The record is a 126-nucleotide RNA sequence from Oricola thermophila, which matches "Alphaproteobacterial ar14" in Rfam. It scores 65 bits against the family's covariance model. The family's RNA type in Rfam is small RNA. The literature on the family includes a 2012 paper in RNA Biol by del Val et al., "A survey of sRNA families in alpha-proteobacteria". Smr14C2 was renamed NfeR1 (Nodule Formation Efficiency RNA) highly expressed in salt stress and during the symbiotic interaction on legume roots. The organism belongs to Oricola, within Bacteria.
RNA sequence: AGAAUUCCGUCCGGCUCGUUCCUCCUCCUCCCGAAACCGGACGGAUAGUGGAGCGCGGUUUCUCCUCCCGGCCGCGGCUUCCUGAACAAGACACCCGCUGCUUCCUCCCGGCAGCGGGUGUUUUCA
Number, nucleotide and partner (000 for none) at each position: 001a000002g000003a000004a000005u000006u000007c044008c043009g042010u000011c040012c039013g038014g037015c000016u035017c000018g000019u000020u000021c000022c000023u000024c000025c000026u000027c000028c000029u000030c000031c000032c000033g000034a000035a016036a000037c014038c013039g012040g011041a000042c009043g008044g007045a000046u000047a000048g000049u000050g082051g081052a080053g079054c076055g075056c074057g073058g072059u071060u000061u000062c000063u000064c000065c000066u000067c000068c000069c000070g000071g059072c058073c057074g056075c055076g054077g000078c000079u053080u052081c051082c050083u000084g000085a000086a000087c000088a000089a000090g000091a121092c120093a119094c118095c117096c116097g115098c114099u113100g112101c111102u000103u000104c000105c000106u000107c000108c000109c000110g000111g101112c100113a099114g098115c097116g096117g095118g094119u093120g092121u091122u000123u000124u000125c000126a000